[Rfam]
RNA: Histone 3' UTR stem-loop
RNA sequence: UAAACGGCCCUUUUCAGGGCCACUAAUUUCAUUACGAAAGAGUUAU
Numbered sequence: 001u002a003a004a005c006g007g008c009c010c011u012u013u014u015c016a017g018g019g020c021c022a023c024u025a026a027u028u029u030c031a032u033u034a035c036g037a038a039a040g041a042g043u044u045a046u
Base pairs, nucleotide, nucleotide: 006021007020008019009018010017011016